Shown here is a 103-nucleotide RNA sequence from Neobacillus bataviensis, a member of the family "SAM riboswitch aptamer (S box leader)". Pairs were carried over by alignment from the consensus structure, which is taken from published work.
RNA sequence: UUCUUAUCAAGAGUGGCGGAGGGACUGGCCCUUUGAAGCCCGGCAACCGAUAUGCAACGCGGUGCUAAAUCCAGCAGGGCAAAGCUGCUCUGGGAGAUGAGAA
Numbered sequence: 001u002u003c004u005u006a007u008c009a010a011g012a013g014u015g016g017c018g019g020a021g022g023g024a025c026u027g028g029c030c031c032u033u034u035g036a037a038g039c040c041c042g043g044c045a046a047c048c049g050a051u052a053u054g055c056a057a058c059g060c061g062g063u064g065c066u067a068a069a070u071c072c073a074g075c076a077g078g079g080c081a082a083a084g085c086u087g088c089u090c091u092g093g094g095a096g097a098u099g100a101g102a103a
Stems, first nucleotide, its partner, number of pairs: 001103008013041001015040003021031003025074004042066004047062002049058001051056001070095001075092006